[Rfam]
RNA sequence: GAAAGGCUGCCAUAUUUCGCCAUCCGGCAGCUGGGUGCAUACCGAGACACCCCAAUUAGG
Numbered sequence: 001g002a003a004a005g006g007c008u009g010c011c012a013u014a015u016u017u018c019g020c021c022a023u024c025c026g027g028c029a030g031c032u033g034g035g036u037g038c039a040u041a042c043c044g045a046g047a048c049a050c051c052c053c054a055a056u057u058a059g060g
Stems, first nucleotide, its partner, number of pairs: 005032007033052005
About this RNA:
The record is a 60-nucleotide sequence, which matches "S4-Clostridia ribosomal protein leader" in Rfam. The family is grouped with related families in Rfam's "Ribosomal Protein S4 Leader clan".